[Rfam]
RNA: Lysine riboswitch aptamer
RNA sequence: CAACACUAUAGAGGAGCUUUUAGUAAGAGUAAAUAUCAUAGCAAGCAUGCGAUGAUUGAUAUUGAAAGGACAUAAAAGCCGAAGCGUUAAAAACGGCAGUGCUUAACGCUGGUAGAAAAGCAUAAAAGAUUUCUACUCUUUGGAAAUUUCCAUUGGUGCUAUAGAUUUA
Numbered sequence: 001c002a003a004c005a006c007u008a009u010a011g012a013g014g015a016g017c018u019u020u021u022a023g024u025a026a027g028a029g030u031a032a033a034u035a036u037c038a039u040a041g042c043a044a045g046c047a048u049g050c051g052a053u054g055a056u057u058g059a060u061a062u063u064g065a066a067a068g069g070a071c072a073u074a075a076a077a078g079c080c081g082a083a084g085c086g087u088u089a090a091a092a093a094c095g096g097c098a099g100u101g102c103u104u105a106a107c108g109c110u111g112g113u114a115g116a117a118a119a120g121c122a123u124a125a126a127a128g129a130u131u132u133c134u135a136c137u138c139u140u141u142g143g144a145a146a147u148u149u150c151c152a153u154u155g156g157u158g159c160u161a162u163a164g165a166u167u168u169a
Base pairs, nucleotide, nucleotide: 006164007163008162009161010160011159016079017078018077019076020075021074023071024070032063033062034061035060036059037058038057083110084109085108086107087106088105089104090103093100094099111137112136113135114134115133116132117131119130121128141152142151143150144149